[Rfam]
RNA sequence: GCCGCGCCUAGAUCGACGGAUCGAAAGCCGGGUCCCCUACUCGGCCGGCGCAGCUCUCCAAGAUAGAUG
Numbered sequence: 001g002c003c004g005c006g007c008c009u010a011g012a013u014c015g016a017c018g019g020a021u022c023g024a025a026a027g028c029c030g031g032g033u034c035c036c037c038u039a040c041u042c043g044g045c046c047g048g049c050g051c052a053g054c055u056c057u058c059c060a061a062g063a064u065a066g067a068u069g
Stems, first nucleotide, its partner, number of pairs: 001054002004051005011022004028044005034069001037066003
About this RNA: int-alpA RNA: a 69-nucleotide RNA from Cupriavidus basilensis. The family has 167 seed sequences and 577 matches in Rfam 15.1. Acidobacteria (1 example), Planctomycetes (1 example), Proteobacteria. By type it is a small RNA. Pairs were carried over by alignment from the consensus structure, which is taken from published work. Lineage of the source: Bacteria > Pseudomonadati > Burkholderiales > Burkholderiaceae > Cupriavidus.